[Rfam]
RNA sequence: UGACGGGGGCCCGCACAAGCGGUGGAGGAUGUUGUUUAAUUCGACGCAACGCGAAGAACCUUACCUGGGCUUGAACCGCCGGUUAAACCUUGUGAAAGCAGGGCUGUGGCAACACGAACCGGUAGAGGUGCUGCAUGGCUGUCGUCAGCUCGUGUCGUGAGAUGUUGGGUUAAGUCCCGCAACGAGCGCAACCCUUGUCGCCAGUUACCAUCAUUCAGUUGGGGACUCUGGCGAGACUGCCGGUGACAAACCGGAGGAAGGUGGGGAUGACGUCAAGUCAUCAUGGCCCUUACGUCCAGGGCUACAAACGUCCUACAAUGGCCGAGACAACGGGUUGCAAGCCUGCGAAGGCAAGCUAAUCCCUUAAACUCGGUCUCAGUUCGGAUUGCAGUCUGCAACUCGACUGCAUGAAGUUGGAAUCGCUAGUAAUCGCAGAUCAGCACGCUGCGGUGAAUACGUUCCCGGGCCUUGUACACACCGCCCGUCACACCACGAAAGUCAGUUGUUCCUGAAGGCGCCGUCGGAACCCGCAAGGGGCCCAAGCGUCAACGGAAUUACCGGUAAUUGGGGUGAAGUCGUAACAAGG
Numbered sequence: 001u002g003a004c005g006g007g008g009g010c011c012c013g014c015a016c017a018a019g020c021g022g023u024g025g026a027g028g029a030u031g032u033u034g035u036u037u038a039a040u041u042c043g044a045c046g047c048a049a050c051g052c053g054a055a056g057a058a059c060c061u062u063a064c065c066u067g068g069g070c071u072u073g074a075a076c077c078g079c080c081g082g083u084u085a086a087a088c089c090u091u092g093u094g095a096a097a098g099c100a101g102g103g104c105u106g107u108g109g110c111a112a113c114a115c116g117a118a119c120c121g122g123u124a125g126a127g128g129u130g131c132u133g134c135a136u137g138g139c140u141g142u143c144g145u146c147a148g149c150u151c152g153u154g155u156c157g158u159g160a161g162a163u164g165u166u167g168g169g170u171u172a173a174g175u176c177c178c179g180c181a182a183c184g185a186g187c188g189c190a191a192c193c194c195u196u197g198u199c200g201c202c203a204g205u206u207a208c209c210a211u212c213a214u215u216c217a218g219u220u221g222g223g224g225a226c227u228c229u230g231g232c233g234a235g236a237c238u239g240c241c242g243g244u245g246a247c248a249a250a251c252c253g254g255a256g257g258a259a260g261g262u263g264g265g266g267a268u269g270a271c272g273u274c275a276a277g278u279c280a281u282c283a284u285g286g287c288c289c290u291u292a293c294g295u296c297c298a299g300g301g302c303u304a305c306a307a308a309c310g311u312c313c314u315a316c317a318a319u320g321g322c323c324g325a326g327a328c329a330a331c332g333g334g335u336u337g338c339a340a341g342c343c344u345g346c347g348a349a350g351g352c353a354a355g356c357u358a359a360u361c362c363c364u365u366a367a368a369c370u371c372g373g374u375c376u377c378a379g380u381u382c383g384g385a386u387u388g389c390a391g392u393c394u395g396c397a398a399c400u401c402g403a404c405u406g407c408a409u410g411a412a413g414u415u416g417g418a419a420u421c422g423c424u425a426g427u428a429a430u431c432g433c434a435g436a437u438c439a440g441c442a443c444g445c446u447g448c449g450g451u452g453a454a455u456a457c458g459u460u461c462c463c464g465g466g467c468c469u470u471g472u473a474c475a476c477a478c479c480g481c482c483c484g485u486c487a488c489a490c491c492a493c494g495a496a497a498g499u500c501a502g503u504u505g506u507u508c509c510u511g512a513a514g515g516c517g518c519c520g521u522c523g524g525a526a527c528c529c530g531c532a533a534g535g536g537g538c539c540c541a542a543g544c545g546u547c548a549a550c551g552g553a554a555u556u557a558c559c560g561g562u563a564a565u566u567g568g569g570g571u572g573a574a575g576u577c578g579u580a581a582c583a584a585g586g
Base pairs, nucleotide, nucleotide: 001475002474003472004471005470007469008468009467010466011465012464013463015459016458019423020422021421022420023419024316026314027313028312029311030310031309032308033307034305035304040055041054042053043052064300065299066298067297068296069295070294076125078123080121081120082119083118084117088103089102090101091100092099093098105116106115107114108113127289128288130287131286132285133284136283137282138278139277140276141274143272144271148187149186150185151184152183153182154163155162156161166179167178168177169176193266194265195264196263198234199233200232201231202230203229204228208223209222212221213220237257238256240254241253242252243251244250320375321374322373323372324371325370326369332363333362334361337356338355342351343350344349382413387408388407389406390405391404392403393402429451430450431449432448433447434446435445478585480582483578484577488572489571490570491569493567494566495565498562499561500560502558503557505555506554507553508552509551514547515546516545517544518543521541523539524538527536528535
The family of this 586-nucleotide part of an RNA from an uncultured bacterium is "Bacterial small subunit ribosomal RNA". Rfam's curators put it in the seed alignment. The family's consensus secondary structure is taken from published work.